[Rfam]
RNA sequence: UGGUAGAUGCACCCUGAUAACUCAUUUCCCUUAGCUAAUUGAUUUUGGCUGGGGGAUUUUUUU
Numbered sequence: 001u002g003g004u005a006g007a008u009g010c011a012c013c014c015u016g017a018u019a020a021c022u023c024a025u026u027u028c029c030c031u032u033a034g035c036u037a038a039u040u041g042a043u044u045u046u047g048g049c050u051g052g053g054g055g056a057u058u059u060u061u062u063u
Stems, first nucleotide, its partner, number of pairs: 002013003028055011

The record is a 63-nucleotide RNA sequence from Calothrix sp. PCC 6303, which matches "Nitrogen stress-induced RNA 1" in Rfam. The source organism's lineage runs through Bacteria, Bacillati, Nostocales, Calotrichaceae and Calothrix. Pairs were carried over by alignment from the consensus structure. The literature on the family includes a 2010 paper in J Mol Biol by Ionescu et al., "Heterocyst-specific transcription of NsiR1, a non-coding RNA encoded in a tandem array of direct repeats in cyanobacteria".